RNA sequence: AAAGUUUAUGGGAAUGAAGUUCUCCCAUGGGAAACCUAAACCGCAUUUUAUGCUGAUGACUUCUGCAAAAAU
Numbered sequence: 001a002a003a004g005u006u007u008a009u010g011g012g013a014a015u016g017a018a019g020u021u022c023u024c025c026c027a028u029g030g031g032a033a034a035c036c037u038a039a040a041c042c043g044c045a046u047u048u049u050a051u052g053c054u055g056a057u058g059a060c061u062u063c064u065g066c067a068a069a070a071a072u
Stems, first nucleotide, its partner, number of pairs: 010026004016063006043053003
RNA: Fluoride riboswitch aptamer (crcB RNA motif)